[Rfam]
RNA sequence: GGUGGUUCACACCAGUGUCUCGGACAGCGGUUCGAUUCCGCUCAGCUCCAUUCCCUCAUUAAAUUUGGGGCUGUAAUGGUUUCGACGGGGCAUGAGGAGGGUUACUGAAGCCUGCUCGGUAAGAGCAAAAACGUAACAGCGAACAACAUCGUUCGUUUCUCCCGUCAAUCAGCCCCUGUUGCUGCUUGA
Numbered sequence: 001g002g003u004g005g006u007u008c009a010c011a012c013c014a015g016u017g018u019c020u021c022g023g024a025c026a027g028c029g030g031u032u033c034g035a036u037u038c039c040g041c042u043c044a045g046c047u048c049c050a051u052u053c054c055c056u057c058a059u060u061a062a063a064u065u066u067g068g069g070g071c072u073g074u075a076a077u078g079g080u081u082u083c084g085a086c087g088g089g090g091c092a093u094g095a096g097g098a099g100g101g102u103u104a105c106u107g108a109a110g111c112c113u114g115c116u117c118g119g120u121a122a123g124a125g126c127a128a129a130a131a132c133g134u135a136a137c138a139g140c141g142a143a144c145a146a147c148a149u150c151g152u153u154c155g156u157u158u159c160u161c162c163c164g165u166c167a168a169u170c171a172g173c174c175c176c177u178g179u180u181g182c183u184g185c186u187u188g189a
Base pairs, nucleotide, nucleotide: 001106002105003104004103005102016092017091018090020088021087022086026042027041028040029039030038043073044072045071046070047069048068049067